[Rfam]
RNA sequence: CGUGCCGGGGUGGGCAGGCCCUGCGGCCAACUAACCCUAAUGGCGGCUGCGCCCCUCACGCCCGCCCGCUGUUUUACUCGCUGACUUUCAGCGGGCAAAGGGAGCGGCCCAAGGAAAGGGGAGGGGGGGAGGAGGUCCGGCCUCAAAAAAAGCCAGCGAGGGGGAUCCACACCCCGGCCCACCCUGGGGUCCCUGUCCCUCCUCCGCAACCGGGAAAGCUCCCGCCGUCGCCCCUCGUGGAGGCCGCGGUCGGCAGGCUCAGCGCCACUACCGCCGCGAAGAGCUCGUCUCUGUCAGCCUCGGCGGCGGCCGGGACCGGAGGGCCGGCCCGCCCACCUUGGGCAGCCGGGGGACCCCAGCAGAACAAAACGGGCGCGGCGCCGCCGGGCGCUGAGCAGCCGCGGCUCCCUCAGACGUGGGGUGCGCGGCCGGCGCCGCCCCGACACGC
Numbered sequence: 001c002g003u004g005c006c007g008g009g010g011u012g013g014g015c016a017g018g019c020c021c022u023g024c025g026g027c028c029a030a031c032u033a034a035c036c037c038u039a040a041u042g043g044c045g046g047c048u049g050c051g052c053c054c055c056u057c058a059c060g061c062c063c064g065c066c067c068g069c070u071g072u073u074u075u076a077c078u079c080g081c082u083g084a085c086u087u088u089c090a091g092c093g094g095g096c097a098a099a100g101g102g103a104g105c106g107g108c109c110c111a112a113g114g115a116a117a118g119g120g121g122a123g124g125g126g127g128g129g130a131g132g133a134g135g136u137c138c139g140g141c142c143u144c145a146a147a148a149a150a151a152g153c154c155a156g157c158g159a160g161g162g163g164g165a166u167c168c169a170c171a172c173c174c175c176g177g178c179c180c181a182c183c184c185u186g187g188g189g190u191c192c193c194u195g196u197c198c199c200u201c202c203u204c205c206g207c208a209a210c211c212g213g214g215a216a217a218g219c220u221c222c223c224g225c226c227g228u229c230g231c232c233c234c235u236c237g238u239g240g241a242g243g244c245c246g247c248g249g250u251c252g253g254c255a256g257g258c259u260c261a262g263c264g265c266c267a268c269u270a271c272c273g274c275c276g277c278g279a280a281g282a283g284c285u286c287g288u289c290u291c292u293g294u295c296a297g298c299c300u301c302g303g304c305g306g307c308g309g310c311c312g313g314g315a316c317c318g319g320a321g322g323g324c325c326g327g328c329c330c331g332c333c334c335a336c337c338u339u340g341g342g343c344a345g346c347c348g349g350g351g352g353a354c355c356c357c358a359g360c361a362g363a364a365c366a367a368a369a370c371g372g373g374c375g376c377g378g379c380g381c382c383g384c385c386g387g388g389c390g391c392u393g394a395g396c397a398g399c400c401g402c403g404g405c406u407c408c409c410u411c412a413g414a415c416g417u418g419g420g421g422u423g424c425g426c427g428g429c430c431g432g433c434g435c436c437g438c439c440c441c442g443a444c445a446c447g448c
Stems, first nucleotide, its partner, number of pairs: 004178009014168001016166001019164004051105002054102002064096008080157004085152001086150003184359007200320003223314001225312001229305004245278005251273003256266003280292004371440004377436006399428005406421004
RNA: Vertebrate telomerase RNA
Organism: Eulacestoma nigropectus